RNA sequence: CUGUACUAGACGGGGAGUUAGCGGUGCCCUGUAACUCGCAAUCCGCUUUAGCGAGGUUGAAUUCCAUCCAGAGGCAAGCUGCCUGUAAUGCAGUCUUGUGCAAGUAGUGUUGAUGCAUGGGUCCCAAGCAAUGGAAGCCCAUGAAUUCCGUCAGAUUCGGAAGAAAGCAGCGGUAAGUGGUCACUUUCAUGUGACUUGGGGACGCCUGUGCGGAGCCAACUACACGAGCAACGGUUGUAGGUACUUGUCGAAGGAUGGUGUACAG
Numbered sequence: 001c002u003g004u005a006c007u008a009g010a011c012g013g014g015g016a017g018u019u020a021g022c023g024g025u026g027c028c029c030u031g032u033a034a035c036u037c038g039c040a041a042u043c044c045g046c047u048u049u050a051g052c053g054a055g056g057u058u059g060a061a062u063u064c065c066a067u068c069c070a071g072a073g074g075c076a077a078g079c080u081g082c083c084u085g086u087a088a089u090g091c092a093g094u095c096u097u098g099u100g101c102a103a104g105u106a107g108u109g110u111u112g113a114u115g116c117a118u119g120g121g122u123c124c125c126a127a128g129c130a131a132u133g134g135a136a137g138c139c140c141a142u143g144a145a146u147u148c149c150g151u152c153a154g155a156u157u158c159g160g161a162a163g164a165a166a167g168c169a170g171c172g173g174u175a176a177g178u179g180g181u182c183a184c185u186u187u188c189a190u191g192u193g194a195c196u197u198g199g200g201g202a203c204g205c206c207u208g209u210g211c212g213g214a215g216c217c218a219a220c221u222a223c224a225c226g227a228g229c230a231a232c233g234g235u236u237g238u239a240g241g242u243a244c245u246u247g248u249c250g251a252a253g254g255a256u257g258g259u260g261u262a263c264a265g
Base pairs, nucleotide, nucleotide: 001265002264003263004262005261006260009058010057011056012030013029014028015027017025018024019023035055036054037053038052039051064258065257066256067255068254069253073249074248075247076246077245080243081242082241083240084239085238086237087236088235089234093232094231096227097226098225099224100223104220105219107216108215114212115211116210117209118208119207120206121205122204123200124199125198126197127196128195129191130190132189133188134187135186136185137182139180140179141178142177148173149172150171151170156165157164158163
A member of the RNA family "Bacterial large signal recognition particle RNA" from Peptostreptococcus stomatis, 265 nucleotides long. It scores 207 bits against the family's covariance model. Gene Ontology terms of the family: signal recognition particle, plasma membrane targeting and SRP-dependent cotranslational protein targeting to membrane, signal sequence recognition.